Source information:
Shown here is a 96-nucleotide sequence from Bremerella alba, a member of the family "Bacterial small signal recognition particle RNA". Clan: SRP clan.

[Rfam]
RNA sequence: UAGAGCGACCCUCGCAAGGGGAAAUUCGGCAACCUGGUCAGGCCUUAAUUGGAGCAGCCACACCUGGAGGACUCUUGUGCGAGGGUCACUCCAAGA
Dot-bracket structure: ...((.(((((((((.(((((...((.((.....((((....((......))....))))..)).))....))))))..)))))))).))......